[Rfam]
RNA sequence: GGUGGAGGGAAACCCAUUAUCAAGACAACACAUUGAGUGUGGAGUCACUCCCCAGCCCUUGGGAGGGUCUGAGACUGGGGCCACCUGGGGCCUUAACAGGGGCCCUCCUGGAGCUGGGAGGUGAGUUUCCAGAGACCAGAGAGCACUGCCCCCUCGGGGGAUGACCAGGCAGGAGAGGCUGUGCCAGAGGCAAUUGGGUUCCCCUUCACCAGAGUGUGAAACAGAUUCACAACAAGCCCAGUGGCUGAGGUGAGGCGUCUCUUGGGUCUCAUAACCCAACUCAGCGUACUCUCCCACACU
Numbered sequence: 001g002g003u004g005g006a007g008g009g010a011a012a013c014c015c016a017u018u019a020u021c022a023a024g025a026c027a028a029c030a031c032a033u034u035g036a037g038u039g040u041g042g043a044g045u046c047a048c049u050c051c052c053c054a055g056c057c058c059u060u061g062g063g064a065g066g067g068u069c070u071g072a073g074a075c076u077g078g079g080g081c082c083a084c085c086u087g088g089g090g091c092c093u094u095a096a097c098a099g100g101g102g103c104c105c106u107c108c109u110g111g112a113g114c115u116g117g118g119a120g121g122u123g124a125g126u127u128u129c130c131a132g133a134g135a136c137c138a139g140a141g142a143g144c145a146c147u148g149c150c151c152c153c154u155c156g157g158g159g160g161a162u163g164a165c166c167a168g169g170c171a172g173g174a175g176a177g178g179c180u181g182u183g184c185c186a187g188a189g190g191c192a193a194u195u196g197g198g199u200u201c202c203c204c205u206u207c208a209c210c211a212g213a214g215u216g217u218g219a220a221a222c223a224g225a226u227u228c229a230c231a232a233c234a235a236g237c238c239c240a241g242u243g244g245c246u247g248a249g250g251u252g253a254g255g256c257g258u259c260u261c262u263u264g265g266g267u268c269u270c271a272u273a274a275c276c277c278a279a280c281u282c283a284g285c286g287u288a289c290u291c292u293c294c295c296a297c298a299c300u
Stems, first nucleotide, its partner, number of pairs: 001300004008294003013249001015247002018244001022059001024057001035050005069284005079238003089104004093099001105120006121230007145215003250272007